[Rfam]
RNA: c-di-GMP-I riboswitch aptamer
Organism: Eubacterium sp. CAG:603
RNA sequence: UAUUGAGAAAUGCAUGGAUGCAAAGCUAGAAGUCUAAGGUAUAUUACAUAGAUAGUUCGGUUGCAAUA
Numbered sequence: 001u002a003u004u005g006a007g008a009a010a011u012g013c014a015u016g017g018a019u020g021c022a023a024a025g026c027u028a029g030a031a032g033u034c035u036a037a038g039g040u041a042u043a044u045u046a047c048a049u050a051g052a053u054a055g056u057u058c059g060g061u062u063g064c065a066a067u068a
Base pairs, nucleotide, nucleotide: 001016002015003014006011024062025061026060027059029058030057031056032053033052034051039047040046041045